[Rfam]
RNA sequence: GAGUGAAAUGAUGGUUCAUCUUUCGGGACUUACCCAAUAAUGGGGACUAACCUUUUGCUGAUCACUC
Dot-bracket structure: ((((((.......................................................))))))